[Rfam]
This 261-nucleotide sequence from a Coriobacteriaceae bacterium belongs to the Rfam family "raiA RNA".
Taxonomically the source falls in Coriobacteriaceae (Bacteria, Actinomycetota, Coriobacteriia, Coriobacteriales).
RNA sequence: CUUUGCCGGGUCUGUGGUUGCGGGCGCCACUCACAGGGCGUCCUAGUCCAUGGCAGACGAGGCCAAAGGGAUCCACGUAAGCCGCCGCGUGCGCGCGGCGGCGAUCACGGCUCGUCCUAGAAGUAAGCCGCACCUCCCGUCAACCGUCUGCGGGGCCCCAUGGCCUCCCGGGGGAGAGGGCGGGUAGUGAAGGCGCCGCGGCGUCCGAGCGAGAGCCCCCGUGCGCGAGUGUGGGGUCGAAGACCAGGUCAGCCGGCAGAG
Numbered sequence: 001c002u003u004u005g006c007c008g009g010g011u012c013u014g015u016g017g018u019u020g021c022g023g024g025c026g027c028c029a030c031u032c033a034c035a036g037g038g039c040g041u042c043c044u045a046g047u048c049c050a051u052g053g054c055a056g057a058c059g060a061g062g063c064c065a066a067a068g069g070g071a072u073c074c075a076c077g078u079a080a081g082c083c084g085c086c087g088c089g090u091g092c093g094c095g096c097g098g099c100g101g102c103g104a105u106c107a108c109g110g111c112u113c114g115u116c117c118u119a120g121a122a123g124u125a126a127g128c129c130g131c132a133c134c135u136c137c138c139g140u141c142a143a144c145c146g147u148c149u150g151c152g153g154g155g156c157c158c159c160a161u162g163g164c165c166u167c168c169c170g171g172g173g174g175a176g177a178g179g180g181c182g183g184g185u186a187g188u189g190a191a192g193g194c195g196c197c198g199c200g201g202c203g204u205c206c207g208a209g210c211g212a213g214a215g216c217c218c219c220c221g222u223g224c225g226c227g228a229g230u231g232u233g234g235g236g237u238c239g240a241a242g243a244c245c246a247g248g249u250c251a252g253c254c255g256g257c258a259g260a261g
Stems, first nucleotide, its partner, number of pairs: 001261009012252003015246005050232003053063001056116006072110002077105001081102009108239001129225005134174005178218004187210002194203003